[Rfam]
This 98-nucleotide sequence from Psychrilyobacter sp. S5 belongs to the Rfam family "Purine riboswitch aptamer".
The literature on the family includes a 2004 paper in Nature by Batey et al., "Structure of a natural guanine-responsive riboswitch complexed with the metabolite hypoxanthine".
The match comes from Rfam's covariance-model search (62 bits).
Taxonomically the source falls in Psychrilyobacter (Bacteria, Fusobacteriota, Fusobacteriia, Fusobacteriaceae).
RNA sequence: UAACAAAAAUUAAAUAAAACUUAUAUAUACCCAUAAUAUGGAUGGGAGUCUCUACGGUUUGCCUUAAAUAAACUGCUAUAAGUAAAUGAAAGUACUUG
Numbered sequence: 001u002a003a004c005a006a007a008a009a010u011u012a013a014a015u016a017a018a019a020c021u022u023a024u025a026u027a028u029a030c031c032c033a034u035a036a037u038a039u040g041g042a043u044g045g046g047a048g049u050c051u052c053u054a055c056g057g058u059u060u061g062c063c064u065u066a067a068a069u070a071a072a073c074u075g076c077u078a079u080a081a082g083u084a085a086a087u088g089a090a091a092g093u094a095c096u097u098g
Stems, first nucleotide, its partner, number of pairs: 019083007030046005056074006